[Rfam]
RNA sequence: CCGUGCUAGGUGGGGAGAUAGCGGUGCCCUGUACUCGCAAUCCGCUCUAGCGAGGCUGAAUUCCUCCCAGAGGUUCUGUACCGUCGGCCACUGUCGGCGAGCUUCGAUGUUGAUAGCUGGGCCCCAUGCGGCGGAGAGCUGCGAACCCCGUCAGGUUCGGAAGAAAGCAGCGGUAAGCGGUUAUCUCCGGGCGACGUGGGACUACCUGGCUUGAGUCGGACUCGUCAGAUACGUCAGCGGAAGGGAUCGACAGGUGGUGCACGG
Numbered sequence: 001c002c003g004u005g006c007u008a009g010g011u012g013g014g015g016a017g018a019u020a021g022c023g024g025u026g027c028c029c030u031g032u033a034c035u036c037g038c039a040a041u042c043c044g045c046u047c048u049a050g051c052g053a054g055g056c057u058g059a060a061u062u063c064c065u066c067c068c069a070g071a072g073g074u075u076c077u078g079u080a081c082c083g084u085c086g087g088c089c090a091c092u093g094u095c096g097g098c099g100a101g102c103u104u105c106g107a108u109g110u111u112g113a114u115a116g117c118u119g120g121g122c123c124c125c126a127u128g129c130g131g132c133g134g135a136g137a138g139c140u141g142c143g144a145a146c147c148c149c150g151u152c153a154g155g156u157u158c159g160g161a162a163g164a165a166a167g168c169a170g171c172g173g174u175a176a177g178c179g180g181u182u183a184u185c186u187c188c189g190g191g192c193g194a195c196g197u198g199g200g201a202c203u204a205c206c207u208g209g210c211u212u213g214a215g216u217c218g219g220a221c222u223c224g225u226c227a228g229a230u231a232c233g234u235c236a237g238c239g240g241a242a243g244g245g246a247u248c249g250a251c252a253g254g255u256g257g258u259g260c261a262c263g264g
Stems, first nucleotide, its partner, number of pairs: 001264006009057003012030004017025001019023001034054005063257002066254002072248005079242001081240004086235003092231002096226006104220002106217003115211007123200006129191001132189005137182006148173004156165003
RNA: Bacterial large signal recognition particle RNA